[Rfam]
RNA: Small nucleolar RNA SNORA3/SNORA45 family
Nucleotides: 129
Base pairs, nucleotide, nucleotide: 002056003055004054005053006052007049008048009047012044013043015042016041017040018039020037023034024033025032026031068121069120070119072117073116074115080110081109082108083107084106086103087102088101089100090099
Number, partner (000 for none) and nucleotide at each position: 001000u002056c003055c004054g005053a006052g007049c008048c009047u010000a011000g012044a013043g014000u015042c016041a017040c018039u019000a020037g021000c022000c023034a024033u025032a026031c027000c028000g029000g030000u031026g032025u033024g034023u035000g036000g037020u038000g039018a040017g041016u042015g043013c044012u045000a046000g047009a048008g049007g050000a051000u052006c053005u054004c055003g056002g057000a058000g059000a060000g061000u062000a063000a064000u065000a066000c067000u068121c069120u070119u071000u072117u073116c074115a075000u076000a077000u078000g079000c080110c081109c082108u083107g084106u085000g086103u087102a088101u089100g090099u091000u092000a093000a094000u095000c096000c097000a098000u099090a100089c101088a102087u103086a104000u105000c106084g107083c108082a109081g110080g111000c112000a113000c114000c115074u116073g117072a118000u119070a120069a121068g122000a123000u124000a125000c126000a127000u128000u129000u